[Rfam]
RNA sequence: UUGCUCACAAAGUGGCUGUGAUAUGCUGAUGUAACGGUGCUCAUAUCACAGCCAGCUUUGAUGAGCGUUG
Numbered sequence: 001u002u003g004c005u006c007a008c009a010a011a012g013u014g015g016c017u018g019u020g021a022u023a024u025g026c027u028g029a030u031g032u033a034a035c036g037g038u039g040c041u042c043a044u045a046u047c048a049c050a051g052c053c054a055g056c057u058u059u060g061a062u063g064a065g066c067g068u069u070g
Stems, first nucleotide, its partner, number of pairs: 005064003008060005013054009024045002

The family of this 70-nucleotide sequence from Dinoponera quadriceps is "mir-2 microRNA precursor family". Taxonomically the source falls in Dinoponera (Eukaryota, Opisthokonta, Mandibulata, Pancrustacea). Rfam links the family to the GO terms RISC complex and miRNA-mediated post-transcriptional gene silencing. The family's consensus secondary structure was predicted with PFOLD. The literature on the family includes a 2001 paper in Science by Lee and Ambros, "An extensive class of small RNAs in Caenorhabditis elegans".